[Rfam]
RNA: SAM riboswitch aptamer (S box leader)
Organism: Oceanobacillus piezotolerans
Nucleotides: 118
Stems, first nucleotide, its partner, number of pairs: 001118008013042001015041003021032003026089004043081004048077002050073004085110001090107006
Number, partner (000 for none) and nucleotide at each position: 001118c002117u003116c004115u005114u006113a007112u008111c009000a010000a011000g012000a013042g014000u015041g016040g017039c018000g019000g020000a021032g022031g023030g024000a025000a026089u027088a028087g029086g030023c031022c032021c033000u034000g035000u036000g037000a038000a039017g040016c041015c042013c043081g044080g045079c046078a047000a048077c049076c050073g051072g052071a053070a054000a055000a056000g057000u058000g059000a060000g061000u062000a063000u064000u065000u066000c067000u068000a069000a070053u071052u072051u073050u074000a075000c076049g077048g078046u079045g080044c081043u082000a083000a084000a085110u086029c087028c088027u089026a090107c091106a092105g093104g094103u095102c096000a097000c098000a099000u100000a101000a102095g103094a104093c105092c106091u107090g108000g109000a110085a111008g112007a113006u114005a115004a116003g117002a118001g